[Rfam]
RNA sequence: AAAUGAAUCGACGUUAUACCGUAGACAGCAGGAGCAGUUAAACUGCUUAAACCAUUCCUGCCGAGGUGUGCUAAAUUGAAAUGAUUCGUACGAGUAUGUGCGAUUAUGAUAUUGAUGCCUCCAUGUCUACAUGGAGGCAUUUUUUAUAGCGAU
Numbered sequence: 001a002a003a004u005g006a007a008u009c010g011a012c013g014u015u016a017u018a019c020c021g022u023a024g025a026c027a028g029c030a031g032g033a034g035c036a037g038u039u040a041a042a043c044u045g046c047u048u049a050a051a052c053c054a055u056u057c058c059u060g061c062c063g064a065g066g067u068g069u070g071c072u073a074a075a076u077u078g079a080a081a082u083g084a085u086u087c088g089u090a091c092g093a094g095u096a097u098g099u100g101c102g103a104u105u106a107u108g109a110u111a112u113u114g115a116u117g118c119c120u121c122c123a124u125g126u127c128u129a130c131a132u133g134g135a136g137g138c139a140u141u142u143u144u145u146a147u148a149g150c151g152a153u
Base pairs, nucleotide, nucleotide: 028061029060030059031058032057033056034046035045036044117138118137119136120135121134122133123132124131125130